RNA sequence: AAAGCAUCAGUGAUGUGUUUCCUCUAAUCAUCCUUGCACUUUGAGGGAAGUUACCAGUGAAGAAAUCAUUGGGGAUAAUAUUCUGAGAUGCAC
Numbered sequence: 001a002a003a004g005c006a007u008c009a010g011u012g013a014u015g016u017g018u019u020u021c022c023u024c025u026a027a028u029c030a031u032c033c034u035u036g037c038a039c040u041u042u043g044a045g046g047g048a049a050g051u052u053a054c055c056a057g058u059g060a061a062g063a064a065a066u067c068a069u070u071g072g073g074g075a076u077a078a079u080a081u082u083c084u085g086a087g088a089u090g091c092a093c
Stems, first nucleotide, its partner, number of pairs: 004091005
A member of the RNA family "Small nucleolar RNA snoR26" from Brachypodium distachyon, 93 nucleotides long. On this family, see Brown et al., RNA 2001: "Multiple snoRNA gene clusters from Arabidopsis". The base pairs follow the family's consensus structure, which was predicted with WAR. It is annotated as a C/D-box small nucleolar RNA.